Notes
FMN riboswitch aptamer (RFN element): a 169-nucleotide RNA from Lysobacter antibioticus. Rfam links the family to the GO term FMN binding. The organism belongs to Lysobacter, within Bacteria. It scores 95 bits against the family's covariance model.
RNA sequence: UAACGUCUUCAGGGCGGGGCGAAACUCCCCACCGGCGGUAGGCGCGGUCACGCGCGAGCCCGCGAGCGCCUCCAGGCCGCGGUUCCGAUUCGGGACCGGGCGCGGAGGGUCAGCAGAUCCGGUCCGAUGCCGGAGCCGACGGUCACAGUCCGGAUGAAAGAAGACGGCU
Numbered sequence: 001u002a003a004c005g006u007c008u009u010c011a012g013g014g015c016g017g018g019g020c021g022a023a024a025c026u027c028c029c030c031a032c033c034g035g036c037g038g039u040a041g042g043c044g045c046g047g048u049c050a051c052g053c054g055c056g057a058g059c060c061c062g063c064g065a066g067c068g069c070c071u072c073c074a075g076g077c078c079g080c081g082g083u084u085c086c087g088a089u090u091c092g093g094g095a096c097c098g099g100g101c102g103c104g105g106a107g108g109g110u111c112a113g114c115a116g117a118u119c120c121g122g123u124c125c126g127a128u129g130c131c132g133g134a135g136c137c138g139a140c141g142g143u144c145a146c147a148g149u150c151c152g153g154a155u156g157a158a159a160g161a162a163g164a165c166g167g168c169u
Stems, first nucleotide, its partner, number of pairs: 004166007017029003031149002033138002035063004058136002066114002118134005140152003